[Rfam]
RNA sequence: GAUUGUCAAGGUCACGGCUUUGGCAACACGAGAACAAUAAAUGAGUUCAAGCGAGCUUAAUUCUUUCAGCUAUGCUGUAAACACAUUAAUAAUG
Numbered sequence: 001g002a003u004u005g006u007c008a009a010g011g012u013c014a015c016g017g018c019u020u021u022g023g024c025a026a027c028a029c030g031a032g033a034a035c036a037a038u039a040a041a042u043g044a045g046u047u048c049a050a051g052c053g054a055g056c057u058u059a060a061u062u063c064u065u066u067c068a069g070c071u072a073u074g075c076u077g078u079a080a081a082c083a084c085a086u087u088a089a090u091a092a093u094g
Stems, first nucleotide, its partner, number of pairs: 003026010067077004
A member of the RNA family "RT-9 RNA", 94 nucleotides long. By type it is a small RNA. The family's consensus secondary structure is taken from published work.